[Rfam]
A member of the RNA family "Purine riboswitch aptamer" from Bacteroides sp. D2, 97 nucleotides long. The organism belongs to Bacteroides, within Bacteria. Pairs were carried over by alignment from the consensus structure, which is taken from published work. Rfam's curators write: Riboswitches are metabolite binding domains within certain messenger RNAs that serve as precision sensors for their corresponding targets. A search with the family's covariance model found it, with a score of 50 bits. Gene Ontology term of the family: purine nucleobase biosynthetic process.
RNA sequence: AUUAUAUCUUUGCACCCAUGUUAUAUAUACUUGUAAUUGGACAAGCGUUUCUACAAACUACCGUAAAUAGUUACUUAUAACAGUCAAUUCAAAAAAA
Numbered sequence: 001a002u003u004a005u006a007u008c009u010u011u012g013c014a015c016c017c018a019u020g021u022u023a024u025a026u027a028u029a030c031u032u033g034u035a036a037u038u039g040g041a042c043a044a045g046c047g048u049u050u051c052u053a054c055a056a057a058c059u060a061c062c063g064u065a066a067a068u069a070g071u072u073a074c075u076u077a078u079a080a081c082a083g084u085c086a087a088u089u090c091a092a093a094a095a096a097a
Base pairs, nucleotide, nucleotide: 019082020081021080022079023078024077025076030045031044032043033042034041056072057071058070059069060068